[Rfam]
RNA sequence: CCAAAGGCUCUUUUCAGAGCCACCCACAAAUUCAAUAAAAGAGUCU
Numbered sequence: 001c002c003a004a005a006g007g008c009u010c011u012u013u014u015c016a017g018a019g020c021c022a023c024c025c026a027c028a029a030a031u032u033c034a035a036u037a038a039a040a041g042a043g044u045c046u
Stems, first nucleotide, its partner, number of pairs: 006021006